Shown here is a 52-nucleotide RNA from Qingshengfaniella alkalisoli, a member of the family "ffh sRNA". Lineage of the source: Bacteria > Pseudomonadati > Pseudomonadota > Rhodobacterales > Qingshengfaniella. The base pairs follow the family's consensus structure, which is taken from published work.
RNA sequence: UAUUUGCGGGAUCGCCAUCCACCAGCGCGUUGCGCCCGUGGAUGCGGCACCG
Numbered sequence: 001u002a003u004u005u006g007c008g009g010g011a012u013c014g015c016c017a018u019c020c021a022c023c024a025g026c027g028c029g030u031u032g033c034g035c036c037c038g039u040g041g042a043u044g045c046g047g048c049a050c051c052g
Base pairs, nucleotide, nucleotide: 016044017043018042019041020040021039022038025035026034027033028032